[Rfam]
RNA sequence: GACAUUUGUUUAUGCAAUUUUGGGGUUUCUUAGCGGCAUUUGCCUCAAAUUACACUGCAAUGCCCUUGGAAAUCCCAAACAUGCAUGACGACUCAA
Numbered sequence: 001g002a003c004a005u006u007u008g009u010u011u012a013u014g015c016a017a018u019u020u021u022g023g024g025g026u027u028u029c030u031u032a033g034c035g036g037c038a039u040u041u042g043c044c045u046c047a048a049a050u051u052a053c054a055c056u057g058c059a060a061u062g063c064c065c066u067u068g069g070a071a072a073u074c075c076c077a078a079a080c081a082u083g084c085a086u087g088a089c090g091a092c093u094c095a096a
Stems, first nucleotide, its partner, number of pairs: 008092003013087001014084003021077009032066002035064005041059003
Dot-bracket structure: .......(((..((((....(((((((((..((.(((((.(((.............))))))))))..)))))))))....)))..)..)))....

Rfam assigns this 96-nucleotide RNA from Tribolium castaneum to the family "mir-2788 microRNA precursor family". It is one of the family's seed sequences. Gene Ontology terms of the family: miRNA-mediated post-transcriptional gene silencing and RISC complex.